[Rfam]
RNA: Bacterial RNase P class A
Organism: Roseibium sp. RKSG952
RNA sequence: GCGGAGGGCCGGAUGGCCGCUGGGGUGCAAACCCGAGAGGAAAGUCCGGACUCCACAAGGCAACGGUGCCGGGUAACGCCCGGGCGGGGAAACCCGACGGAAAGCGCCACAGAAAACAAACCGCUUUGGUGAUUCAGAGGUUCGCCUCCGGCAAAACCAGAGUAAGGAUGAAACGGUGGGGUAAGAGCCCACCGCGUCCCUGGCAACAGGGAUGGCACGGCAAGCCCCACCGGGAGCAAUGCCGAAUAGGGUCCCCGCGCGGGCCGGUCGGCGCCAGCCGAUACCGCCGCUAGGCAUGCCUUGGCCGAGAGGGACCGGGUUGGCAGCUGGAGCCGUGCAGCAAUGCACGGCCUAGAUGAAUGGUCAUCGAAGGGGGUAACCCUGGAACAGGAUCCGGCUUACAGGCCCUCCGCGCAA
Numbered sequence: 001g002c003g004g005a006g007g008g009c010c011g012g013a014u015g016g017c018c019g020c021u022g023g024g025g026u027g028c029a030a031a032c033c034c035g036a037g038a039g040g041a042a043a044g045u046c047c048g049g050a051c052u053c054c055a056c057a058a059g060g061c062a063a064c065g066g067u068g069c070c071g072g073g074u075a076a077c078g079c080c081c082g083g084g085c086g087g088g089g090a091a092a093c094c095c096g097a098c099g100g101a102a103a104g105c106g107c108c109a110c111a112g113a114a115a116a117c118a119a120a121c122c123g124c125u126u127u128g129g130u131g132a133u134u135c136a137g138a139g140g141u142u143c144g145c146c147u148c149c150g151g152c153a154a155a156a157c158c159a160g161a162g163u164a165a166g167g168a169u170g171a172a173a174c175g176g177u178g179g180g181g182u183a184a185g186a187g188c189c190c191a192c193c194g195c196g197u198c199c200c201u202g203g204c205a206a207c208a209g210g211g212a213u214g215g216c217a218c219g220g221c222a223a224g225c226c227c228c229a230c231c232g233g234g235a236g237c238a239a240u241g242c243c244g245a246a247u248a249g250g251g252u253c254c255c256c257g258c259g260c261g262g263g264c265c266g267g268u269c270g271g272c273g274c275c276a277g278c279c280g281a282u283a284c285c286g287c288c289g290c291u292a293g294g295c296a297u298g299c300c301u302u303g304g305c306c307g308a309g310a311g312g313g314a315c316c317g318g319g320u321u322g323g324c325a326g327c328u329g330g331a332g333c334c335g336u337g338c339a340g341c342a343a344u345g346c347a348c349g350g351c352c353u354a355g356a357u358g359a360a361u362g363g364u365c366a367u368c369g370a371a372g373g374g375g376g377u378a379a380c381c382c383u384g385g386a387a388c389a390g391g392a393u394c395c396g397g398c399u400u401a402c403a404g405g406c407c408c409u410c411c412g413c414g415c416a417a
Stems, first nucleotide, its partner, number of pairs: 001413010011402001012368007020037002023034004042400003046397005051236004059301002064232005069083005084098001085096004099227002104225002106221003121167002123163008175193006194216001195214008240325004250316006294305002332351008